[Rfam]
RNA sequence: UUCUAUCUUCGGGGCAGGGUGUGAUUCCCGACCGACGGUGUUGAACAGAUAUUGUUCUGAGUCCGUGACCCGCAAUGCAUAUGCAUUGCGGCUGACCUGGUGGAAAUCCGGGACCGACAGUUAAAGUCUGGAUGGGAGAAGAUUAUA
Numbered sequence: 001u002u003c004u005a006u007c008u009u010c011g012g013g014g015c016a017g018g019g020u021g022u023g024a025u026u027c028c029c030g031a032c033c034g035a036c037g038g039u040g041u042u043g044a045a046c047a048g049a050u051a052u053u054g055u056u057c058u059g060a061g062u063c064c065g066u067g068a069c070c071c072g073c074a075a076u077g078c079a080u081a082u083g084c085a086u087u088g089c090g091g092c093u094g095a096c097c098u099g100g101u102g103g104a105a106a107u108c109c110g111g112g113a114c115c116g117a118c119a120g121u122u123a124a125a126g127u128c129u130g131g132a133u134g135g136g137a138g139a140a141g142a143u144u145a146u147a
Base pairs, nucleotide, nucleotide: 005143006142007141008140009139010138017029018028019027031127032126033116034115035066036065037064038063061114062113070091071090096112097111098110099109100108118130119129120128

A member of the RNA family "FMN riboswitch aptamer (RFN element)" from Virgibacillus phasianinus, 147 nucleotides long. The family's consensus secondary structure is taken from published work.